[Rfam]
RNA sequence: GCCUUUGAUGAUUUGAUCCGUGUCUGAGGUGUAUUGGAACCGAGACCCUGUUUUGCAGGGAGAACCUACUUGGGGAAAAUUCAUUUAUAUGAAAUUAUUGGAUCUUUUCUGAGGA
Numbered sequence: 001g002c003c004u005u006u007g008a009u010g011a012u013u014u015g016a017u018c019c020g021u022g023u024c025u026g027a028g029g030u031g032u033a034u035u036g037g038a039a040c041c042g043a044g045a046c047c048c049u050g051u052u053u054u055g056c057a058g059g060g061a062g063a064a065c066c067u068a069c070u071u072g073g074g075g076a077a078a079a080u081u082c083a084u085u086u087a088u089a090u091g092a093a094a095u096u097a098u099u100g101g102a103u104c105u106u107u108u109c110u111g112a113g114g115a
Base pairs, nucleotide, nucleotide: 002114003113046060047059048058049057050056
Small nucleolar RNA Z278: a 115-nucleotide sequence from Protea cynaroides. Taxonomically the source falls in Protea (Eukaryota, Streptophyta, Proteales, Proteaceae). A reference for the family is Chen et al. (2003), "The high diversity of snoRNAs in plants: identification and comparative study of 120 snoRNA genes from Oryza sativa", Nucleic Acids Res. The match comes from Rfam's covariance-model search (53 bits). From the family's description: snoZ278 is a C/D box small nucleolar RNA. Its methylation guide targets have not been reported. It is annotated as a C/D-box small nucleolar RNA. Rfam 15.1 lists 1,130 matches to the family in 214 species.